Rfam assigns this 132-nucleotide RNA from Fulmarus glacialis to the family "Small nucleolar RNA SNORA3/SNORA45 family". By type it is an H/ACA-box small nucleolar RNA. Clan: SNORA3 clan. On this family, see Huttenhofer et al., EMBO J 2001: "RNomics: an experimental approach that identifies 201 candidates for novel, small, non-messenger RNAs in mouse". The family's consensus secondary structure was predicted with RNAalifold. The members of this family belong to the H/ACA class of snoRNAs which are thought to guide the sites of modification of uridines to pseudouridines. This family includes mouse snoMBI-28 and human homologues ACA3 (SNORA3) and ACA3-2 (SNORA45). A search with the family's covariance model found it, with a score of 88 bits.
[Rfam]
RNA sequence: AUCGAGACUAGAGUCACAUCUUAACACAUUUGAUUGUCUUGGUGUGCUAUAGUUCUCGGACAUAAACGUCUGAUCCCUAUUCACUGGCUGUGAUGUCUUCUAUCUCAGCCAGCCACCGAAUCAGUGACACUA
Numbered sequence: 001a002u003c004g005a006g007a008c009u010a011g012a013g014u015c016a017c018a019u020c021u022u023a024a025c026a027c028a029u030u031u032g033a034u035u036g037u038c039u040u041g042g043u044g045u046g047c048u049a050u051a052g053u054u055c056u057c058g059g060a061c062a063u064a065a066a067c068g069u070c071u072g073a074u075c076c077c078u079a080u081u082c083a084c085u086g087g088c089u090g091u092g093a094u095g096u097c098u099u100c101u102a103u104c105u106c107a108g109c110c111a112g113c114c115a116c117c118g119a120a121u122c123a124g125u126g127a128c129a130c131u132a
Stems, first nucleotide, its partner, number of pairs: 002059005007053003012048002015046006024037003070124005076118001084112004089107002092104003